[Rfam]
RNA sequence: AGGGGGAGUGCCAUAACUUGGGCUGUGUCUCCCAGCGCUCUGGGCUCCCGGGCCUGCACUGCUGUAAUCGCGGUCCCAGGGGAUGCAGCCCCCU
Dot-bracket structure: ((((((...(((.(..((.(((.(((((...((((.((...(.(((....)))).)).)))..).)..)))).))).))).)..))..))))))
Numbered sequence: 001a002g003g004g005g006g007a008g009u010g011c012c013a014u015a016a017c018u019u020g021g022g023c024u025g026u027g028u029c030u031c032c033c034a035g036c037g038c039u040c041u042g043g044g045c046u047c048c049c050g051g052g053c054c055u056g057c058a059c060u061g062c063u064g065u066a067a068u069c070g071c072g073g074u075c076c077c078a079g080g081g082g083a084u085g086c087a088g089c090c091c092c093c094u
Stems, first nucleotide, its partner, number of pairs: 001094006010086002012082001014080001017079002020076003024072004028066001032064001033061003037057002042054001044053003
A member of the RNA family "mir-8799 microRNA precursor family" from Canis lupus, 94 nucleotides long. The base pairs follow the family's consensus structure, which was predicted with RNAalifold. The source organism's lineage runs through Eukaryota, Craniata, Amniota, Canidae and Canis lupus.